[Rfam]
RNA sequence: AACCAGCAUAGCUCGACGGAGCGAAAAGCAGAGUCAUUACCUGCCUGGCUGGUUUCUUAUCGUAAUGG
Numbered sequence: 001a002a003c004c005a006g007c008a009u010a011g012c013u014c015g016a017c018g019g020a021g022c023g024a025a026a027a028g029c030a031g032a033g034u035c036a037u038u039a040c041c042u043g044c045c046u047g048g049c050u051g052g053u054u055u056c057u058u059a060u061c062g063u064a065a066u067g068g
Stems, first nucleotide, its partner, number of pairs: 001054007011022004028044004035068001038065001
Dot-bracket structure: (((((((...((((....)))).....((((...[..[..))))...)))))))..........]..]
RNA: int-alpA RNA